Notes:
A member of the RNA family "Small nucleolar RNA snR43" from Ogataea arabinofermentans, 218 nucleotides long. The family is grouped with related families in Rfam's "SNORA9 clan".

RNA sequence: CACUCCAAUUCUGCCUCAUUUUCCUUAUUUUCUAUAGGAUUAUGGGUUCUACUUGCGGAGAAGAUAAAGCCACCAAAUUGAUUGUCCUCACGAUUUGAUACUUCUGGACGAUCGAUGGGGUGGAUCGUGGGAUGGUUGUCCAACUGAUUGAUAAGAUUGGCUGGAAACUCUUAAGUGAGCUUAAGCUUCUUGUCACAUUGAUGGAUCUCCCUACAUUU
Dot-bracket structure: ..((((........((((..(((.............)))...))))..........)))).........(((((..((((((((((..(................)))))))))))..))))).....((((.....(((((.........(..((..(..............................)..))..)....))))).)))).......
Numbered sequence: 001c002a003c004u005c006c007a008a009u010u011c012u013g014c015c016u017c018a019u020u021u022u023c024c025u026u027a028u029u030u031u032c033u034a035u036a037g038g039a040u041u042a043u044g045g046g047u048u049c050u051a052c053u054u055g056c057g058g059a060g061a062a063g064a065u066a067a068a069g070c071c072a073c074c075a076a077a078u079u080g081a082u083u084g085u086c087c088u089c090a091c092g093a094u095u096u097g098a099u100a101c102u103u104c105u106g107g108a109c110g111a112u113c114g115a116u117g118g119g120g121u122g123g124a125u126c127g128u129g130g131g132a133u134g135g136u137u138g139u140c141c142a143a144c145u146g147a148u149u150g151a152u153a154a155g156a157u158u159g160g161c162u163g164g165a166a167a168c169u170c171u172u173a174a175g176u177g178a179g180c181u182u183a184a185g186c187u188u189c190u191u192g193u194c195a196c197a198u199u200g201a202u203g204g205a206u207c208u209c210c211c212u213a214c215a216u217u218u
Stems, first nucleotide, its partner, number of pairs: 003060004015046004021039003070123005077116010089106001129211004138206005152197001155194002159190001